[Rfam]
RNA sequence: GUAGUUGGAUCUCCCACUUUUUGGAAUUUCCAAAUUC
Numbered sequence: 001g002u003a004g005u006u007g008g009a010u011c012u013c014c015c016a017c018u019u020u021u022u023g024g025a026a027u028u029u030c031c032a033a034a035u036u037c
Stems, first nucleotide, its partner, number of pairs: 003018003007014002020034006
RNA: Plastid psbT antisense RNA